RNA sequence: CCCCCGUCCCUCCCGCACGGAAGGACGGACCGAGGAACCGGCGCUCUCUGCCCUGACUGCGCCGGCUCCUCCCCUUCGGCAGCCGGGACCGCACACCCGGCAGCCGAUCCGGCUGCGGUGCCGGGAGGGUUGAGGGUCCCUCUCAGGCGC
Numbered sequence: 001c002c003c004c005c006g007u008c009c010c011u012c013c014c015g016c017a018c019g020g021a022a023g024g025a026c027g028g029a030c031c032g033a034g035g036a037a038c039c040g041g042c043g044c045u046c047u048c049u050g051c052c053c054u055g056a057c058u059g060c061g062c063c064g065g066c067u068c069c070u071c072c073c074c075u076u077c078g079g080c081a082g083c084c085g086g087g088a089c090c091g092c093a094c095a096c097c098c099g100g101c102a103g104c105c106g107a108u109c110c111g112g113c114u115g116c117g118g119u120g121c122c123g124g125g126a127g128g129g130u131u132g133a134g135g136g137u138c139c140c141u142c143u144c145a146g147g148c149g150c
Stems, first nucleotide, its partner, number of pairs: 004028003008024002011021002032071005038065004043060002045056002076107005082101001085098003112119002123144007
Streptomyces sRNA scr5239: a 150-nucleotide RNA from Streptomyces sulfonofaciens. The organism belongs to Streptomyces, within Bacteria. Gene Ontology terms of the family: mRNA binding and negative regulation of translation. It scores 120 bits against the family's covariance model. By type it is a small RNA.